The family of this 472-nucleotide part of an RNA from Acipenser ruthenus is "Eukaryotic large subunit ribosomal RNA".

RNA sequence: GGUAGUAACAAAUAUUCAAACGAGAACUUUGAAGGCCGAAGUGGAGAAGGGUUCCAUGUGAACAGCAGUUGAACAUGGGUCAGUCGGUCCUAAGAGAUAGGCGAACGCCGUUCCGAAAAGAGGGGCGAUGGCCUCCGUUGCCUCCGGCCGAUCGAAAGGGAGUCGGGUUCAGAUCCCAGAAUCCGGAGUGGCGGAGAUGGGUGCCACAAGGCGUCCAGUGCAGUAACGCGACUGAGCCCGGAGAAGCUUGCGGAAGCCCCGGGGAGAGUUCUCUUUUCUUUGUGAAGGGCAGGGCGCCCUGGAAUGGGUUCGCCCUGAGAGAGGGGCCCGCGCCUUGGAAAGCGUUGCGGUUGCGGCGGCGUCCGGUGAGCUAUUGCCGGUCCUUGAAAAUCUGGGGGAGAUGGUAUAAAUCUCGCGUCGGGCCGUACUCAUAUCUGCAGCAGGUCUCCAAGGUGAACAGCCUCUGGCAUGU
Numbered sequence: 001g002g003u004a005g006u007a008a009c010a011a012a013u014a015u016u017c018a019a020a021c022g023a024g025a026a027c028u029u030u031g032a033a034g035g036c037c038g039a040a041g042u043g044g045a046g047a048a049g050g051g052u053u054c055c056a057u058g059u060g061a062a063c064a065g066c067a068g069u070u071g072a073a074c075a076u077g078g079g080u081c082a083g084u085c086g087g088u089c090c091u092a093a094g095a096g097a098u099a100g101g102c103g104a105a106c107g108c109c110g111u112u113c114c115g116a117a118a119a120g121a122g123g124g125g126c127g128a129u130g131g132c133c134u135c136c137g138u139u140g141c142c143u144c145c146g147g148c149c150g151a152u153c154g155a156a157a158g159g160g161a162g163u164c165g166g167g168u169u170c171a172g173a174u175c176c177c178a179g180a181a182u183c184c185g186g187a188g189u190g191g192c193g194g195a196g197a198u199g200g201g202u203g204c205c206a207c208a209a210g211g212c213g214u215c216c217a218g219u220g221c222a223g224u225a226a227c228g229c230g231a232c233u234g235a236g237c238c239c240g241g242a243g244a245a246g247c248u249u250g251c252g253g254a255a256g257c258c259c260c261g262g263g264g265a266g267a268g269u270u271c272u273c274u275u276u277u278c279u280u281u282g283u284g285a286a287g288g289g290c291a292g293g294g295c296g297c298c299c300u301g302g303a304a305u306g307g308g309u310u311c312g313c314c315c316u317g318a319g320a321g322a323g324g325g326g327c328c329c330g331c332g333c334c335u336u337g338g339a340a341a342g343c344g345u346u347g348c349g350g351u352u353g354c355g356g357c358g359g360c361g362u363c364c365g366g367u368g369a370g371c372u373a374u375u376g377c378c379g380g381u382c383c384u385u386g387a388a389a390a391u392c393u394g395g396g397g398g399a400g401a402u403g404g405u406a407u408a409a410a411u412c413u414c415g416c417g418u419c420g421g422g423c424c425g426u427a428c429u430c431a432u433a434u435c436u437g438c439a440g441c442a443g444g445u446c447u448c449c450a451a452g453g454u455g456a457a458c459a460g461c462c463u464c465u466g467g468c469a470u471g472u
Stems, first nucleotide, its partner, number of pairs: 015033006034470001035468003043449004049429002054078006063071002085425003089159002094153002096112003100109003120144004163180002166177002183421004207415001209413003219230003237396006246381003251376003255372003259366003263281005286336005297325004305317004343361006435444002451463004
It scores 2433 bits against the family's covariance model.